[Rfam]
RNA sequence: CCUGCAAGCUGAUCUAUCGCCCCGAUUCAUCGGGGAGGAAAGUCCGGGCAACACAGGGCAUUCUGCUUCCUAACAGGAAGGAUCUGCUUUGGCAGAGACGGAAAGUGCUACAGAAAACAAACUACCCGCCCUAGGCGGGAAAAGGUGAAAACGUGAGGUAAGAGCUCACGGUCUUCCCGGGCGACCGGGAUUACGGUAAACCCCAGGAGUUGAAAGACCAAAUAGGUUCCGGAAGUGAGGCUGCCCGCUUACAAUGCCGCAUCUGCGGCAUAUCCGGAAUGGGUAGGUCGUUAGACCUCGCAAGCGAUUGCGCGGCUAGAUAAAUGAUAGGUACCGCCGUUGGCGGACACAGAACCCGGCUUACAGGCUUGCUUUUUUA
Numbered sequence: 001c002c003u004g005c006a007a008g009c010u011g012a013u014c015u016a017u018c019g020c021c022c023c024g025a026u027u028c029a030u031c032g033g034g035g036a037g038g039a040a041a042g043u044c045c046g047g048g049c050a051a052c053a054c055a056g057g058g059c060a061u062u063c064u065g066c067u068u069c070c071u072a073a074c075a076g077g078a079a080g081g082a083u084c085u086g087c088u089u090u091g092g093c094a095g096a097g098a099c100g101g102a103a104a105g106u107g108c109u110a111c112a113g114a115a116a117a118c119a120a121a122c123u124a125c126c127c128g129c130c131c132u133a134g135g136c137g138g139g140a141a142a143a144g145g146u147g148a149a150a151a152c153g154u155g156a157g158g159u160a161a162g163a164g165c166u167c168a169c170g171g172u173c174u175u176c177c178c179g180g181g182c183g184a185c186c187g188g189g190a191u192u193a194c195g196g197u198a199a200a201c202c203c204c205a206g207g208a209g210u211u212g213a214a215a216g217a218c219c220a221a222a223u224a225g226g227u228u229c230c231g232g233a234a235g236u237g238a239g240g241c242u243g244c245c246c247g248c249u250u251a252c253a254a255u256g257c258c259g260c261a262u263c264u265g266c267g268g269c270a271u272a273u274c275c276g277g278a279a280u281g282g283g284u285a286g287g288u289c290g291u292u293a294g295a296c297c298u299c300g301c302a303a304g305c306g307a308u309u310g311c312g313c314g315g316c317u318a319g320a321u322a323a324a325u326g327a328u329a330g331g332u333a334c335c336g337c338c339g340u341u342g343g344c345g346g347a348c349a350c351a352g353a354a355c356c357c358g359g360c361u362u363a364c365a366g367g368c369u370u371g372c373u374u375u376u377u378u379a
Stems, first nucleotide, its partner, number of pairs: 004372007011364001012332007020035006040362003044359005049212004056264003061208005066080005081099001083096005100203002105201002107197003122144002125139006152170006175190006216289004226280006255270005296315002299312005
RNA: Bacterial RNase P class A
Organism: Daejeonella lutea